[Rfam]
Small nucleolar RNA SNORD83: a 79-nucleotide sequence from Nannospalax galili.
Rfam 15.1 lists 1,393 matches to the family in 644 species.
Gene Ontology terms of the family: nucleolus and RNA processing.
Rfam classes the family as a C/D-box small nucleolar RNA.

RNA sequence: GCCACAUGAUGUUUGAGUUUUUGGAAAUGAGCGCUCUGCGCAGUGCUGACCUUUUAUCUAUCACCCUUGACUGAUGGCU
Numbered sequence: 001g002c003c004a005c006a007u008g009a010u011g012u013u014u015g016a017g018u019u020u021u022u023g024g025a026a027a028u029g030a031g032c033g034c035u036c037u038g039c040g041c042a043g044u045g046c047u048g049a050c051c052u053u054u055u056a057u058c059u060a061u062c063a064c065c066c067u068u069g070a071c072u073g074a075u076g077g078c079u
Stems, first nucleotide, its partner, number of pairs: 001078004031041004
Dot-bracket structure: ((((..........................((((...)))).................................)))).